[Rfam]
Nucleotides: 093
Stems, first nucleotide, its partner, number of pairs: 005090003008086009019075002022072003026068001028066009038056002
Number, partner (000 for none) and nucleotide at each position: 001000c002000u003000c004000u005090g006089g007088g008086c009085a010084g011083u012082g013081c014080c015079u016078c017000u018000a019075g020074g021000a022072c023071u024070g025000u026068c027000c028066a029065g030064c031063c032062u033061g034060a035059g036058a037000a038056u039055g040000g041000u042000g043000a044000g045000u046000c047000u048000c049000c050000a051000g052000g053000g054000u055039c056038a057000a058036u059035c060034u061033c062032a063031g064030g065029u066028u067000c068026g069000u070024c071023a072022g073000c074020c075019c076000a077000u078016g079015a080014g081013g082012u083011g084010c085009u086008g087000c088007u089006c090005c091000a092000g093000c
Shown here is a 93-nucleotide sequence from Carlito syrichta, a member of the family "mir-1388 microRNA precursor family". Rfam 15.1 lists 600 matches to the family in 570 species. The family's consensus secondary structure was predicted with RNAalifold.